RprA RNA: a 108-nucleotide RNA. By type it is a small RNA. The base pairs follow the family's consensus structure, which was predicted with PFOLD. About the family: Translational regulation of the stationary phase sigma factor RpoS is mediated by the formation of a double-stranded RNA stem-loop structure in the upstream region of the rpoS messenger RNA, occluding the translation initiation site. Rfam links the family to the GO term mRNA binding.
RNA sequence: AUGGCUUUAGAUCAACACAUUGAUUUAUAAGCAUGGAAAUCCCCUGAGUGAAACAACGAAUUGCUGUGUGUAGUCUUUGCCCAUCUCCCACGGUGGGCUUUUUUUUGU
Number, nucleotide and partner (000 for none) at each position: 001a000002u022003g021004g020005c000006u000007u000008u000009a000010g000011a000012u000013c000014a000015a000016c000017a000018c000019a000020u004021u003022g002023a000024u000025u000026u000027a000028u000029a000030a000031g000032c046033a045034u000035g043036g042037a000038a000039a000040u000041c000042c036043c035044c000045u033046g032047a000048g000049u000050g000051a000052a000053a000054c000055a000056a000057c000058g000059a000060a000061u000062u070063g069064c068065u000066g000067u000068g064069u063070g062071u000072a000073g000074u000075c000076u000077u000078u000079g098080c097081c096082c095083a094084u093085c092086u000087c000088c000089c000090a000091c000092g085093g084094u083095g082096g081097g080098c079099u000100u000101u000102u000103u000104u000105u000106u000107g000108u000